[Rfam]
RNA sequence: UUCGAUAAAGCCGAACCCAUCGAAAGAUGGGGACGGGAAACCACAAGUUUCAGAUAGUUUCGUUGAUUCAAGCUCCUAGUUUUUUUGGCGCUUCCUUAAGAUCUUGAUUCUCUACUAAACAGUAUUGAGCUGCAGCGC
Numbered sequence: 001u002u003c004g005a006u007a008a009a010g011c012c013g014a015a016c017c018c019a020u021c022g023a024a025a026g027a028u029g030g031g032g033a034c035g036g037g038a039a040a041c042c043a044c045a046a047g048u049u050u051c052a053g054a055u056a057g058u059u060u061c062g063u064u065g066a067u068u069c070a071a072g073c074u075c076c077u078a079g080u081u082u083u084u085u086u087g088g089c090g091c092u093u094c095c096u097u098a099a100g101a102u103c104u105u106g107a108u109u110c111u112c113u114a115c116u117a118a119a120c121a122g123u124a125u126u127g128a129g130c131u132g133c134a135g136c137g138c
Base pairs, nucleotide, nucleotide: 003135011036012035016031017030018029019028020027021026039131041129044127045126046125048121049119
RNA: c-di-GMP-I-GGC riboswitch aptamer